Small nucleolar RNA SNORA41: a 133-nucleotide sequence from Molossus molossus.
About the family: ACA41 is a member of the H/ACA class of snoRNA that guide the sites of modification of uridines to pseudouridines.
The organism belongs to Molossus, within Eukaryota.
By type it is an H/ACA-box small nucleolar RNA.
For this family Rfam cites "RNomics: an experimental approach that identifies 201 candidates for novel, small, non-messenger RNAs in mouse" (Huttenhofer et al., EMBO J, 2001).
Nucleotides: 133
Base pairs, nucleotide, nucleotide: 003059004058005057006056017046018045019044020043021042022041023040024039025038073122074121075120076119077118086113087112088111089109090108091107092106093105094104
Number, partner (000 for none) and nucleotide at each position: 001000u002000u003059c004058c005057a006056c007000a008000g009000c010000u011000a012000c013000u014000g015000g016000u017046c018045u019044g020043c021042a022041g023040c024039u025038g026000u027000u028000c029000c030000u031000a032000u033000g034000g035000u036000g037000g038025c039024a040023g041022c042021u043020g044019u045018g046017g047000c048000a049000u050000u051000c052000c053000u054000c055000u056006g057005u058004g059003g060000g061000a062000a063000a064000g065000g066000a067000a068000u069000u070000g071000u072000u073122a074121c075120a076119c077118g078000g079000u080000u081000a082000a083000a084000c085000a086113c087112c088111u089109c090108u091107u092106u093105c094104u095000u096000a097000g098000c099000a100000a101000a102000a103000c104094a105093g106092a107091a108090a109089g110000u111088g112087g113086g114000c115000a116000u117000g118077u119076g120075u121074g122073u123000g124000a125000c126000a127000a128000a129000c130000a131000c132000g133000a